[Rfam]
RNA sequence: GCACAUCAUGCAGGAGAGAGCGGCUUUAUGCCGCCGCCGAAGGCGCAAGCGCACCCGCAAUCGCUCAGGCAAAAGGACUGCAUCAUACGG
Numbered sequence: 001g002c003a004c005a006u007c008a009u010g011c012a013g014g015a016g017a018g019a020g021c022g023g024c025u026u027u028a029u030g031c032c033g034c035c036g037c038c039g040a041a042g043g044c045g046c047a048a049g050c051g052c053a054c055c056c057g058c059a060a061u062c063g064c065u066c067a068g069g070c071a072a073a074a075g076g077a078c079u080g081c082a083u084c085a086u087a088c089g090g
Stems, first nucleotide, its partner, number of pairs: 006085001008083006020034004036070003039066002043064003049058002

Rfam assigns this 90-nucleotide RNA sequence from Craterilacuibacter sinensis to the family "Glycine riboswitch aptamer". A search with the family's covariance model found it, with a score of 72 bits.